[Rfam]
RNA sequence: CAACCCGCGAGGCGCGGUCUGGAGGAAGCCGCUGGCAAAGCUGCGAGCUGAUGAAUAAGAACAUCAUAUGAGGCGUAAGCCGGAGGUGAGUUGGCACAAGACGACGAAGCCGCGUGAUCUGACGGCCACCGUAAAUGAUGCAGUUGUGCGGUGAAAGUUCAUGCU
Numbered sequence: 001c002a003a004c005c006c007g008c009g010a011g012g013c014g015c016g017g018u019c020u021g022g023a024g025g026a027a028g029c030c031g032c033u034g035g036c037a038a039a040g041c042u043g044c045g046a047g048c049u050g051a052u053g054a055a056u057a058a059g060a061a062c063a064u065c066a067u068a069u070g071a072g073g074c075g076u077a078a079g080c081c082g083g084a085g086g087u088g089a090g091u092u093g094g095c096a097c098a099a100g101a102c103g104a105c106g107a108a109g110c111c112g113c114g115u116g117a118u119c120u121g122a123c124g125g126c127c128a129c130c131g132u133a134a135a136u137g138a139u140g141c142a143g144u145u146g147u148g149c150g151g152u153g154a155a156a157g158u159u160c161a162u163g164c165u
Stems, first nucleotide, its partner, number of pairs: 001016001005012002028165001030163002035158002040152006046145005062140006073132003079126004085111003090105004
Annotation
The family of this 165-nucleotide RNA from Marinobacter sp. ELB17 is "Group II catalytic intron D1-D4-3". It is one of the family's seed sequences. The source organism's lineage runs through Bacteria, Pseudomonadota, Pseudomonadales, Marinobacteraceae and Marinobacter. Pairs were carried over by alignment from the consensus structure.